The family of this 508-nucleotide RNA from Streptomyces collinus is "Saccharopolyspora sRNA 350". The literature on the family includes a 2013 paper in PLoS One by Liu et al., "Prediction and characterization of small non-coding RNAs related to secondary metabolites in Saccharopolyspora erythraea". Its family is annotated with regulation of secondary metabolite biosynthetic process in the Gene Ontology.
[Rfam]
RNA sequence: CGGGCCGUGUACUCCCAGAUCGCGUCCGGGUCCAGCAGCGCCGCCUCGCCGAAGUAGGCGCCGUCGGCGAGGACACCGAGGACCGCGUCGUCGCCGUACGGGCCGGUGCCGAUCUUCUCGACCCUGCCGUGCGCCAGCAGGUGGACCUCGUCGGUCCGGCUGCCGAAGGAGGCGAUCAGCUCGCCGGGCGCGAACUCCCGCUGCCGGCAGCGCCGGGCCAGCUCGGUGAGCACCUCGUCGUCCUCGUACGACCGCAGGGCCGGCAGCUCGCCGAGUUCGGCCGGGAUGACCUCCACCUGGUCCCCGGUCUUGACGAAGGUGAUACGGCCGUCGCCGACGGCGAACGUCAGACGCCGGUUCACCCGGUACGUGCCGCCCUGCACGUCGACCCAGGGCAGGGUCCGCAGCAGCCAGCGGGAGGUGAUCUCCUGCAUCUGCGGGACGGACUUGGUCGUGGUGGCCAGGUUCCGCGCAGCCGCCGUGCCGAGAGACUGCUGGGGCUUGCCCU
Numbered sequence: 001c002g003g004g005c006c007g008u009g010u011a012c013u014c015c016c017a018g019a020u021c022g023c024g025u026c027c028g029g030g031u032c033c034a035g036c037a038g039c040g041c042c043g044c045c046u047c048g049c050c051g052a053a054g055u056a057g058g059c060g061c062c063g064u065c066g067g068c069g070a071g072g073a074c075a076c077c078g079a080g081g082a083c084c085g086c087g088u089c090g091u092c093g094c095c096g097u098a099c100g101g102g103c104c105g106g107u108g109c110c111g112a113u114c115u116u117c118u119c120g121a122c123c124c125u126g127c128c129g130u131g132c133g134c135c136a137g138c139a140g141g142u143g144g145a146c147c148u149c150g151u152c153g154g155u156c157c158g159g160c161u162g163c164c165g166a167a168g169g170a171g172g173c174g175a176u177c178a179g180c181u182c183g184c185c186g187g188g189c190g191c192g193a194a195c196u197c198c199c200g201c202u203g204c205c206g207g208c209a210g211c212g213c214c215g216g217g218c219c220a221g222c223u224c225g226g227u228g229a230g231c232a233c234c235u236c237g238u239c240g241u242c243c244u245c246g247u248a249c250g251a252c253c254g255c256a257g258g259g260c261c262g263g264c265a266g267c268u269c270g271c272c273g274a275g276u277u278c279g280g281c282c283g284g285g286a287u288g289a290c291c292u293c294c295a296c297c298u299g300g301u302c303c304c305c306g307g308u309c310u311u312g313a314c315g316a317a318g319g320u321g322a323u324a325c326g327g328c329c330g331u332c333g334c335c336g337a338c339g340g341c342g343a344a345c346g347u348c349a350g351a352c353g354c355c356g357g358u359u360c361a362c363c364c365g366g367u368a369c370g371u372g373c374c375g376c377c378c379u380g381c382a383c384g385u386c387g388a389c390c391c392a393g394g395g396c397a398g399g400g401u402c403c404g405c406a407g408c409a410g411c412c413a414g415c416g417g418g419a420g421g422u423g424a425u426c427u428c429c430u431g432c433a434u435c436u437g438c439g440g441g442a443c444g445g446a447c448u449u450g451g452u453c454g455u456g457g458u459g460g461c462c463a464g465g466u467u468c469c470g471c472g473c474a475g476c477c478g479c480c481g482u483g484c485c486g487a488g489a490g491a492c493u494g495c496u497g498g499g500g501c502u503u504g505c506c507c508u
Base pairs, nucleotide, nucleotide: 002390003389005387007385008384010382012380015327018325020322021321022320023319025316026315036312037311038310040308041307042306048302050300052298054233055232059228060227061226062225063224065111066110067109068108077102080099082097083096085094086093118221120219122217123216126213127212130209132206133205135203136202137201140198141197143196144195149192150191154189155188156187157186158185159184160183161178162177235295237293240290241289242288244286245285249283250282252280253279254278256277257276261270262269329342330341331340332339351379353377355375356374357373360372361371362370391431392430393429394428395427397425400422401421403418405416407415437476438475440473443470444469445468446467447465448464449463450462451461452460478508480504481503484499485498487496488495